[Rfam]
RNA sequence: GGUUUCCUUUGGUGCAAAUCCAAUUACCUUCAUUUGAGAUGAGAAGCAAUUCCCAUUGGUAGCAAAUGGUUAUCCAUUAAGUGGGGAAAAAGACGU
Numbered sequence: 001g002g003u004u005u006c007c008u009u010u011g012g013u014g015c016a017a018a019u020c021c022a023a024u025u026a027c028c029u030u031c032a033u034u035u036g037a038g039a040u041g042a043g044a045a046g047c048a049a050u051u052c053c054c055a056u057u058g059g060u061a062g063c064a065a066a067u068g069g070u071u072a073u074c075c076a077u078u079a080a081g082u083g084g085g086g087a088a089a090a091a092g093a094c095g096u
Base pairs, nucleotide, nucleotide: 009023010022011021012020052085053084054083055077056076058074059073060072061071062070063069
Plastid-rps12 3UTR RNA: a 96-nucleotide RNA from Protea cynaroides. Rfam's curators write: Plastid rpl20 is a non-coding RNA (ncRNA) recognised in plastids. The family's consensus secondary structure was predicted with LocARNA. Lineage of the source: Eukaryota > Streptophytina > Tracheophyta > Proteaceae > Protea. On this family, see Richter et al., Plant Commun 2023: "Retrograde signaling in plants: A critical review focusing on the GUN pathway and beyond". The family has 1,299 seed sequences and 1,710 matches in Rfam 15.1.